[Rfam]
RNA sequence: UUGAGCAUGAGGAUUAUUUGCUAAAAUGCCGUUUCCUACAGCAUGCAACAGGUGCGUUUUGCCUAGACCUGUACCACCAUA
Dot-bracket structure: ....((...((((..((..((......)).)).))))...))........((((.((...((........))))))))...